[Rfam]
RNA sequence: ACACUGAAAGGAGGUGAUCCUGAGUUGAGUACUUCCAGGACGCGUGAGGUGGCUGCGCGCUAGCGCUGCCCCGUCCGUGGCGGUAAGCACCGACCGCGGACUCUCCACCACUGGCGCGCAAGCGCAAUUCAGAGCAGUCACCCGGCCCGCAGGCUCAUCGGAUCGUCCUCCGAUGCCUCGGCCCCUGGACGCAGGGACCGAGGAGAACGCCUGCGGGCCGUUCUGU
Numbered sequence: 001a002c003a004c005u006g007a008a009a010g011g012a013g014g015u016g017a018u019c020c021u022g023a024g025u026u027g028a029g030u031a032c033u034u035c036c037a038g039g040a041c042g043c044g045u046g047a048g049g050u051g052g053c054u055g056c057g058c059g060c061u062a063g064c065g066c067u068g069c070c071c072c073g074u075c076c077g078u079g080g081c082g083g084u085a086a087g088c089a090c091c092g093a094c095c096g097c098g099g100a101c102u103c104u105c106c107a108c109c110a111c112u113g114g115c116g117c118g119c120a121a122g123c124g125c126a127a128u129u130c131a132g133a134g135c136a137g138u139c140a141c142c143c144g145g146c147c148c149g150c151a152g153g154c155u156c157a158u159c160g161g162a163u164c165g166u167c168c169u170c171c172g173a174u175g176c177c178u179c180g181g182c183c184c185c186u187g188g189a190c191g192c193a194g195g196g197a198c199c200g201a202g203g204a205g206a207a208c209g210c211c212u213g214c215g216g217g218c219c220g221u222u223c224u225g226u
Stems, first nucleotide, its partner, number of pairs: 014056003018052001058124004063119002067116003143220012157174006
Actinobacteria sRNA Ms_IGR-5: a 226-nucleotide sequence from Streptacidiphilus pinicola.
The family's RNA type in Rfam is small RNA.
A reference for the family is Li et al. (2013), "Identification of small RNAs in Mycobacterium smegmatis using heterologous Hfq", RNA.